[Rfam]
RNA: Glycine riboswitch aptamer
Organism: Eilatimonas milleporae
RNA sequence: GACACUCUGGAAAGCAGGCAGGCCUGACAGGCCCGUCUCACCGAAGGGGUAAGCCGCCCGGCUGGCUGUGCAUGCAUACCGAGCCAUUGCAUGCAUACAGGCGAUGCCGUACCGGUCAAAUCUCUCAGGUCCCAUGACAGAGGGGGUGUU
Numbered sequence: 001g002a003c004a005c006u007c008u009g010g011a012a013a014g015c016a017g018g019c020a021g022g023c024c025u026g027a028c029a030g031g032c033c034c035g036u037c038u039c040a041c042c043g044a045a046g047g048g049g050u051a052a053g054c055c056g057c058c059c060g061g062c063u064g065g066c067u068g069u070g071c072a073u074g075c076a077u078a079c080c081g082a083g084c085c086a087u088u089g090c091a092u093g094c095a096u097a098c099a100g101g102c103g104a105u106g107c108c109g110u111a112c113c114g115g116u117c118a119a120a121u122c123u124c125u126c127a128g129g130u131c132c133c134a135u136g137a138c139a140g141a142g143g144g145g146g147u148g149u150u
Base pairs, nucleotide, nucleotide: 003144005142006141007140008139009138016038017037018036019035040130041129042128043126044125047124048123049122053117